[Rfam]
RNA: Bacterial small subunit ribosomal RNA, nucleotides 568 to 918
Organism: Porphyromonas endodontalis
RNA sequence: GGUUUAAAGGGUGCGUAGGUGGCGUAUUAAGUCAGUGGUGAAAAGCUGCAGCUCAACUGUAGUCUUGCCGUUGAAACUGAUAUGCUAGAGAGGAGACGAGGUAUGCGGAAUGUGUGGUGUAGCGGUGAAAUGCAUAGAUAUCACACAGAACGCCGAUUGCGAAGGCAGCGUACCAGGCUCCGUCUGACACUGAAGCACGAAAGCGUGGGGAUCAAACAGGAUUAGAUACCCUGGUAGUCCACGCAGUAAACGAUGAAUACUAGAUUUUUGCGAUAUACUGUAAGAGUCUAAGCGAAAGCGAUAAGUAUUCCACCUGGGGAGUACGCCGGCAACGGUGAAACUCAAAGGAAU
Numbered sequence: 001g002g003u004u005u006a007a008a009g010g011g012u013g014c015g016u017a018g019g020u021g022g023c024g025u026a027u028u029a030a031g032u033c034a035g036u037g038g039u040g041a042a043a044a045g046c047u048g049c050a051g052c053u054c055a056a057c058u059g060u061a062g063u064c065u066u067g068c069c070g071u072u073g074a075a076a077c078u079g080a081u082a083u084g085c086u087a088g089a090g091a092g093g094a095g096a097c098g099a100g101g102u103a104u105g106c107g108g109a110a111u112g113u114g115u116g117g118u119g120u121a122g123c124g125g126u127g128a129a130a131u132g133c134a135u136a137g138a139u140a141u142c143a144c145a146c147a148g149a150a151c152g153c154c155g156a157u158u159g160c161g162a163a164g165g166c167a168g169c170g171u172a173c174c175a176g177g178c179u180c181c182g183u184c185u186g187a188c189a190c191u192g193a194a195g196c197a198c199g200a201a202a203g204c205g206u207g208g209g210g211a212u213c214a215a216a217c218a219g220g221a222u223u224a225g226a227u228a229c230c231c232u233g234g235u236a237g238u239c240c241a242c243g244c245a246g247u248a249a250a251c252g253a254u255g256a257a258u259a260c261u262a263g264a265u266u267u268u269u270g271c272g273a274u275a276u277a278c279u280g281u282a283a284g285a286g287u288c289u290a291a292g293c294g295a296a297a298g299c300g301a302u303a304a305g306u307a308u309u310c311c312a313c314c315u316g317g318g319g320a321g322u323a324c325g326c327c328g329g330c331a332a333c334g335g336u337g338a339a340a341c342u343c344a345a346a347g348g349a350a351u
Stems, first nucleotide, its partner, number of pairs: 001314003009311001011198004016192001018191003022085007030078002032074009045063007089185003092181004097176001100174007107151001111147008122133003159166002203244006213237001217233004255310006263288010292299002316343003325336004
Dot-bracket structure: (((.....(.((((.(.(((.(((((((.(((((((((((....(((((((.....)))))))..)))))))))..)))))))))...(((((((.(..((((((((...((((((((...(((......)))......))))))))...).......((....)).))))))).).)))).)))...))))..))))....((((((....(...((((.........))))...).))))))..........((((((..((((((((((......))))))))))...((....)).....)))))))))).(((......((((....))))....)))........